[Rfam]
RNA sequence: AAGAAUAUUGAAUAAGAGGCCUAAUAUAAGCUCAUAAUCGGUUGAGCGUCUCUACCAAUUACCGUAAUAAUUGACUAUAGGCCCACAGAAAUUGUGG
Number, nucleotide and partner (000 for none) at each position: 001a000002a000003g000004a000005a000006u000007a000008u000009u000010g000011a000012a000013u000014a000015a000016g000017a000018g083019g082020c081021c080022u079023a000024a078025u077026a076027u000028a000029a000030g047031c046032u045033c044034a043035u000036a000037a000038u000039c000040g000041g000042u000043u034044g033045a032046g031047c030048g000049u000050c000051u000052c000053u000054a000055c000056c073057a072058a071059u070060u069061a068062c000063c000064g000065u000066a000067a000068u061069a060070a059071u058072u057073g056074a000075c000076u026077a025078u024079a022080g021081g020082c019083c018084c000085a000086c000087a000088g000089a000090a000091a000092u000093u000094g000095u000096g000097g000
RNA: Purine riboswitch aptamer
Organism: Lachnospiraceae bacterium oral taxon 500